[Rfam]
RNA sequence: AAUUCUCUUGUUUGUGUCUUAUGAUGAAUCUUCAUAGGGCAGAUUCUGAGCUGAGAGAUAAAAUUUCUCUCCACUGAUACUCUCUCUAUGCCAUCUGAAGACACUAUGCAU
Dot-bracket structure: ...........(.((((((........((...(((.(((..(..((.(.(..((((((.....))))))..).).)))..)))....)))..))....)))))).).....

The family of this 111-nucleotide sequence from Todus mexicanus is "Small nucleolar RNA SNORD90". By type it is a C/D-box small nucleolar RNA. Rfam describes the family as follows. snoRNA HBII-295 belongs to the family of C/D snoRNAs. It is the human orthologue of the mouse MBII-295 and has no identified RNA target. For this family Rfam cites "RNomics: an experimental approach that identifies 201 candidates for novel, small, non-messenger RNAs in mouse" (Huttenhofer et al., EMBO J, 2001). A search with the family's covariance model found it, with a score of 53 bits. Taxonomically the source falls in Todus (Eukaryota, Tetrapoda, Sauria, Aves).